[Rfam]
RNA: Group II catalytic intron D1-D4-5
Organism: Peptococcus niger
RNA sequence: AACAACUAAUAACUCAAAAGGUGGAACGAAGGGGUAACGCCCUGAAACGCCUUCCCUAAUACUCCGGCUAGCGUCAGAAUGUGUAACCAUUCAGGGGUUAGAAGCUCGGUGAAGACGGCAGAGAGUAGCCCAAACAGGCCAAGCUGUGGAAAGCUGUCCAGAGGUGGACGGUGCUAGUUAUAUGCCGGGGGUCUAUAAA
Number, nucleotide and partner (000 for none) at each position: 001a000002a000003c000004a000005a000006c000007u000008a000009a000010u000011a000012a000013c000014u000015c000016a000017a000018a053019a052020g051021g050022u049023g048024g000025a000026a000027c000028g000029a000030a000031g043032g042033g041034g040035u000036a000037a000038c000039g000040c034041c033042c032043u031044g000045a000046a000047a000048c023049g022050c021051c020052u019053u018054c191055c190056c189057u188058a000059a000060u000061a000062c000063u000064c109065c108066g107067g106068c101069u100070a099071g098072c097073g000074u095075c094076a000077g092078a091079a090080u089081g088082u000083g000084u000085a000086a000087c000088c081089a080090u079091u078092c077093a000094g075095g074096g000097g072098u071099u070100a069101g068102a000103a000104g000105c000106u067107c066108g065109g064110u000111g000112a000113a000114g000115a000116c187117g186118g185119c184120a183121g000122a000123g000124a178125g000126u176127a175128g174129c173130c149131c148132a147133a000134a000135c000136a000137g145138g144139c000140c000141a000142a000143g000144c138145u137146g000147u132148g131149g130150a000151a000152a000153g172154c171155u170156g169157u168158c167159c166160a165161g000162a000163g000164g000165u160166g159167g158168a157169c156170g155171g154172u153173g129174c128175u127176a126177g000178u124179u000180a000181u000182a000183u120184g119185c118186c117187g116188g057189g056190g055191g054192u000193c000194u000195a000196u000197a000198a000199a000